[Rfam]
RNA sequence: AAAGUUUGACAGACAAUCGCUGGCGGCUUCGGCCGCGAGAGGAAAGUCCGGGCUCCAUAGGGCAGGAUGCUGGAUAACGUCCAGUCGGCGCGAGCCGAAGGAUAGUGCCACAGAAAUGGACCGCCGAUGGCCGGCCGCAAGGCUGGCACAGGCAAGGGUGGAACCGUGGUGUAAGAGACCACGAGCGCCGUUGGCGACAACGGGGCUGGUAAACCCCAUCUGGAGCAAGACCGAGAGAACGCAGCGCGUUUACGCGCGCCCUUGCCCGGGGAGCGUUCGGGUGUGUCGCUUGAGCGUGUCAGCAAUGGCAGGCCUAGAUAGAUGAUUGUCGCUUCAAUGGUGGGAGGGUUGUUCCCGUUCGGACCACCGGAAGAACAGAACCCGGCUUACGGCAAACUUUCCGU
Numbered sequence: 001a002a003a004g005u006u007u008g009a010c011a012g013a014c015a016a017u018c019g020c021u022g023g024c025g026g027c028u029u030c031g032g033c034c035g036c037g038a039g040a041g042g043a044a045a046g047u048c049c050g051g052g053c054u055c056c057a058u059a060g061g062g063c064a065g066g067a068u069g070c071u072g073g074a075u076a077a078c079g080u081c082c083a084g085u086c087g088g089c090g091c092g093a094g095c096c097g098a099a100g101g102a103u104a105g106u107g108c109c110a111c112a113g114a115a116a117u118g119g120a121c122c123g124c125c126g127a128u129g130g131c132c133g134g135c136c137g138c139a140a141g142g143c144u145g146g147c148a149c150a151g152g153c154a155a156g157g158g159u160g161g162a163a164c165c166g167u168g169g170u171g172u173a174a175g176a177g178a179c180c181a182c183g184a185g186c187g188c189c190g191u192u193g194g195c196g197a198c199a200a201c202g203g204g205g206c207u208g209g210u211a212a213a214c215c216c217c218a219u220c221u222g223g224a225g226c227a228a229g230a231c232c233g234a235g236a237g238a239a240c241g242c243a244g245c246g247c248g249u250u251u252a253c254g255c256g257c258g259c260c261c262u263u264g265c266c267c268g269g270g271g272a273g274c275g276u277u278c279g280g281g282u283g284u285g286u287c288g289c290u291u292g293a294g295c296g297u298g299u300c301a302g303c304a305a306u307g308g309c310a311g312g313c314c315u316a317g318a319u320a321g322a323u324g325a326u327u328g329u330c331g332c333u334u335c336a337a338u339g340g341u342g343g344g345a346g347g348g349u350u351g352u353u354c355c356c357g358u359u360c361g362g363a364c365c366a367c368c369g370g371a372a373g374a375a376c377a378g379a380a381c382c383c384g385g386c387u388u389a390c391g392g393c394a395a396a397c398u399u400u401c402c403g404u
Stems, first nucleotide, its partner, number of pairs: 001400008010391001012330007020039002023036005044388003048385005053225004060267004065221005070084005085099001086097004100216002105214002107210003121157002123153003128148002131145001165183006185206002188203006229287003237278006259271004294313002297310005
The record is a 404-nucleotide sequence from Paenibacillus methanolicus, which matches "Bacterial RNase P class A" in Rfam. For this family Rfam cites "Ribonuclease P: unity and diversity in a tRNA processing ribozyme" (Frank and Pace, Annu Rev Biochem, 1998). Pairs were carried over by alignment from the consensus structure, which is taken from published work. The source organism's lineage runs through Bacteria, Bacillati, Caryophanales, Paenibacillaceae and Paenibacillus. It scores 270 bits against the family's covariance model.